[Rfam]
Background:
The family of this 115-nucleotide RNA sequence from Amycolatopsis sacchari is "SAM (S-adenosyl methionine) riboswitch aptamer". Rfam links the family to the GO terms regulation of gene expression and S-adenosylmethionine metabolic process. SAM-IV is a mRNA element that regulates gene expression via direct sensing of S-adenosylmethionine (SAM or AdoMet).

Nucleotides: 115
Base pairs, nucleotide, nucleotide: 001079002078003077004076009038011037012036013035014034015033016032021030022029039066040065041064044062045061046060048057049056082104083103084102085101086100087099088098089097090096091095
Number, partner (000 for none) and nucleotide at each position: 001079g002078g003077u004076c005000a006000u007000g008000a009038g010000u011037g012036c013035c014034a015033g016032c017000g018000c019000g020000u021030a022029g023000c024000c025000c026000c027000g028000g029022c030021u031000u032016g033015c034014u035013g036012g037011c038009c039066g040065g041064c042000a043000a044062c045061c046060c047000u048057c049056c050000g051000a052000c053000c054000g055000c056049g057048g058000u059000g060046g061045g062044g063000u064041g065040c066039c067000c068000c069000g070000g071000g072000u073000g074000a075000g076004g077003a078002c079001c080000u081000g082104g083103c084102c085101c086100g087099c088098c089097g090096c091095g092000c093000g094000g095091u096090g097089c098088g099087g100086u101085g102084g103083g104082c105000a106000a107000g108000c109000g110000c111000g112000g113000g114000c115000c